[Rfam]
A member of the RNA family "mir-29 microRNA precursor family" from Dissostichus mawsoni, 66 nucleotides long.

RNA sequence: AGAAGCUGGUUUCACAUGGUGGAUUAGAUGUUCCCAUUGUCUAGCACCAUUUGAAAUCAGUGUUCU
Number, nucleotide and partner (000 for none) at each position: 001a066002g065003a064004a063005g061006c060007u059008g058009g057010u056011u055012u054013c053014a052015c000016a050017u049018g048019g047020u046021g045022g000023a000024u000025u043026a042027g041028a040029u000030g000031u000032u000033c000034c000035c000036a000037u000038u000039g000040u028041c027042u026043a025044g000045c021046a020047c019048c018049a017050u016051u000052u014053g013054a012055a011056a010057u009058c008059a007060g006061u005062g000063u004064u003065c002066u001
Lineage of the source: Eukaryota > Chordata > Actinopterygii > Teleostei > Dissostichus. The match comes from Rfam's covariance-model search (69 bits). Rfam's curators write: This family represents the microRNA (miRNA) precursors mir-29. A reference for the family is Ambros (2001), "microRNAs: tiny regulators with great potential", Cell. The family's consensus secondary structure was predicted with PFOLD.